The record is an 82-nucleotide RNA from Lentibacillus cibarius, which matches "c-di-GMP-I riboswitch aptamer" in Rfam.
Lineage of the source: Bacteria > Bacilli > Caryophanales > Bacillaceae > Lentibacillus.
RNA sequence: ACCCGAUAAUGGCAAACUUAUCGAAAGGUAAGGACGCAAAACCAAGGGCCUAAAGCUUUUAGUUCAGGCAGCCUUUUCUUUG
Numbered sequence: 001a002c003c004c005g006a007u008a009a010u011g012g013c014a015a016a017c018u019u020a021u022c023g024a025a026a027g028g029u030a031a032g033g034a035c036g037c038a039a040a041a042c043c044a045a046g047g048g049c050c051u052a053a054a055g056c057u058u059u060u061a062g063u064u065c066a067g068g069c070a071g072c073c074u075u076u077u078c079u080u081u082g
Base pairs, nucleotide, nucleotide: 012037013036017032018031019030020029021028022027040076041075045074046073047072048069049068050067055063056062057061